The family of this 80-nucleotide RNA from Petromyzon marinus is "mir-30 microRNA precursor family". Its family is annotated with gene silencing by miRNA and RISC complex in the Gene Ontology.
[Rfam]
RNA sequence: CCGGGAGCUGUAAACAUCCACGACUGGAAGCUGCCCCAGCUGUGUCCACGCGCUUUCAGUCCGGUGUUUACGGCUCCCGC
Numbered sequence: 001c002c003g004g005g006a007g008c009u010g011u012a013a014a015c016a017u018c019c020a021c022g023a024c025u026g027g028a029a030g031c032u033g034c035c036c037c038a039g040c041u042g043u044g045u046c047c048a049c050g051c052g053c054u055u056u057c058a059g060u061c062c063g064g065u066g067u068u069u070a071c072g073g074c075u076c077c078c079g080c
Stems, first nucleotide, its partner, number of pairs: 002079005008073011023060009
This family consists of the mammalian microRNA (miRNA) precursor mir-30a. The sequence is in the family's curated seed alignment. The source organism's lineage runs through Eukaryota, Metazoa, Cyclostomata, Petromyzontiformes and Petromyzon.